This 53-nucleotide sequence belongs to the Rfam family "Glutamine riboswitch aptamer (glnA leader)". On this family, see Ames and Breaker, RNA Biol 2011: "Bacterial aptamers that selectively bind glutamine". Rfam links the family to the GO term glutamine binding. Rfam's curators put it in the seed alignment.

RNA sequence: AUCGUUCAUCCUUUCACAGGACGGAAGUAGUCUAAAUGACGAAGGAACGCAUU
Numbered sequence: 001a002u003c004g005u006u007c008a009u010c011c012u013u014u015c016a017c018a019g020g021a022c023g024g025a026a027g028u029a030g031u032c033u034a035a036a037u038g039a040c041g042a043a044g045g046a047a048c049g050c051a052u053u
Stems, first nucleotide, its partner, number of pairs: 003049005009021004024050001030040003